[Rfam]
RNA sequence: GGCCUUCCUCUGUGGUGCAAUCGAUCUGGGGGCCCCGUGAUCGAUCGCCCUGCAGAGGGAGGCU
Numbered sequence: 001g002g003c004c005u006u007c008c009u010c011u012g013u014g015g016u017g018c019a020a021u022c023g024a025u026c027u028g029g030g031g032g033c034c035c036c037g038u039g040a041u042c043g044a045u046c047g048c049c050c051u052g053c054a055g056a057g058g059g060a061g062g063c064u
Base pairs, nucleotide, nucleotide: 001064002063003062004061005060006059007058008057009056010055011054012053013052014051015050017048018047020045021044022043023042024041025040026039029036030035
About this RNA: mir-9242 microRNA precursor family: a 64-nucleotide RNA from Myotis lucifugus. Gene Ontology terms of the family: miRNA-mediated post-transcriptional gene silencing and RISC complex. The family's consensus secondary structure was predicted with RNAalifold. The family has 2 seed sequences and 940 matches in Rfam 15.1. A search with the family's covariance model found it, with a score of 63 bits.